RNA sequence: GUUGCUUCAUAUGGUGAACUCUCUCUUAAAAUUGAAGUGAGGGAUGUUCAAGUUUCCGAAGCAUAGAUGAAUGGUCAGUAUUAAACAGCAUGAUGCAAGUCAAUUACAUCUUGCUACCUGUCUCCUGCUACAUUC
Numbered sequence: 001g002u003u004g005c006u007u008c009a010u011a012u013g014g015u016g017a018a019c020u021c022u023c024u025c026u027u028a029a030a031a032u033u034g035a036a037g038u039g040a041g042g043g044a045u046g047u048u049c050a051a052g053u054u055u056c057c058g059a060a061g062c063a064u065a066g067a068u069g070a071a072u073g074g075u076c077a078g079u080a081u082u083a084a085a086c087a088g089c090a091u092g093a094u095g096c097a098a099g100u101c102a103a104u105u106a107c108a109u110c111u112u113g114c115u116a117c118c119u120g121u122c123u124c125c126u127g128c129u130a131c132a133u134u135c
Base pairs, nucleotide, nucleotide: 003063004062005061006060007059008058015050016049017048018047019046020044021043022042023041024040074129076127077126078125080123087115088114089113092110093109094108095107

Rfam assigns this 135-nucleotide RNA sequence from Solanum lycopersicum to the family "small nucleolar RNA snoR137".
The source organism's lineage runs through Eukaryota, eudicotyledons, Pentapetalae, Solanoideae and Solanum subgen. Lycopersicon.
A search with the family's covariance model found it, with a score of 105 bits.
By type it is an H/ACA-box small nucleolar RNA.
Gene Ontology terms of the family: RNA processing and nucleolus.